A member of the RNA family "Y RNA-like" from Andreprevotia lacus, 128 nucleotides long.
Taxonomically the source falls in Andreprevotia lacus (Bacteria, Pseudomonadati, Neisseriales, Andreprevotia).
Rfam describes the family as follows. In Deinococcus radiodurans Rsr is tethered via Y RNA to the exoribonuclease PNPase and channels single-stranded RNA into the PNPase cavity. Rsr and Y RNA enhance degradation of structured RNAs by PNPase. This role could be conserved, as Rsr and ncRNAs called YrlA and YrlB (Y RNA like) also associate with PNPase in an evolutionary distant bacterium Salmonella Typhimurium.
Rfam 15.1 lists 124 matches to the family in 99 species.
The match comes from Rfam's covariance-model search (76 bits).
Rfam classes the family as a small RNA.
RNA sequence: AUGGCGAAUGCAGGUGGAAAUACAUAGUGAAGUGGUCGCGGGUUCGAGUCCCGUCGGCUCCGCAUCGAUGGGGCCGUAGCUCAGUGGUAGAGCGCUUUUCAAUUUUCACCGCUCUUUGUCGCCAUCCU
Numbered sequence: 001a002u003g004g005c006g007a008a009u010g011c012a013g014g015u016g017g018a019a020a021u022a023c024a025u026a027g028u029g030a031a032g033u034g035g036u037c038g039c040g041g042g043u044u045c046g047a048g049u050c051c052c053g054u055c056g057g058c059u060c061c062g063c064a065u066c067g068a069u070g071g072g073g074c075c076g077u078a079g080c081u082c083a084g085u086g087g088u089a090g091a092g093c094g095c096u097u098u099u100c101a102a103u104u105u106u107c108a109c110c111g112c113u114c115u116u117u118g119u120c121g122c123c124a125u126c127c128u
Base pairs, nucleotide, nucleotide: 002124003123004122005121006120007119013110014109015108016107017106018105019104031096032095033094038054039053040052041051042050045087055076056075057074058073059072060071061070062069079093080092081091082090